Description:
A member of the RNA family "MIR8024 microRNA precursor family" from Solanum commersonii, 86 nucleotides long. Rfam 15.1 lists 661 matches to the family in 8 species. Gene Ontology terms of the family: miRNA-mediated post-transcriptional gene silencing and RISC complex. The organism belongs to Solanum, within Eukaryota.
RNA sequence: UUGAAGAAUUUGAAGACUUCAACUUGCAGACUUGAAAAACUUCAAUACUUCAACUUGCAUGCUUGGAGAUUUUGAAGACUUCAUCU
Numbered sequence: 001u002u003g004a005a006g007a008a009u010u011u012g013a014a015g016a017c018u019u020c021a022a023c024u025u026g027c028a029g030a031c032u033u034g035a036a037a038a039a040c041u042u043c044a045a046u047a048c049u050u051c052a053a054c055u056u057g058c059a060u061g062c063u064u065g066g067a068g069a070u071u072u073u074g075a076a077g078a079c080u081u082c083a084u085c086u
Stems, first nucleotide, its partner, number of pairs: 002083005009076006017068005025059004032053005